[Rfam]
Rfam assigns this 130-nucleotide RNA sequence from Nocardia gamkensis to the family "ALIL pseudoknot". Pairs were carried over by alignment from the consensus structure, which is taken from published work. The family's RNA type in Rfam is cis-regulatory element.
RNA sequence: CGAGUUUUUUCGCGCGGGAACUCGACCCGCGACACCGCUGAUCGUCGGGUUCAUCGACGAAUACCGCCAGGUCUACGGCGUCGAGUCGAUCUGCCGCGCAUUAUCGGCGCAUGGUGUGCAGAUCGCGCCC
Numbered sequence: 001c002g003a004g005u006u007u008u009u010u011c012g013c014g015c016g017g018g019a020a021c022u023c024g025a026c027c028c029g030c031g032a033c034a035c036c037g038c039u040g041a042u043c044g045u046c047g048g049g050u051u052c053a054u055c056g057a058c059g060a061a062u063a064c065c066g067c068c069a070g071g072u073c074u075a076c077g078g079c080g081u082c083g084a085g086u087c088g089a090u091c092u093g094c095c096g097c098g099c100a101u102u103a104u105c106g107g108c109g110c111a112u113g114g115u116g117u118g119c120a121g122a123u124c125g126c127g128c129c130c
Stems, first nucleotide, its partner, number of pairs: 014030005077129004087125002090122005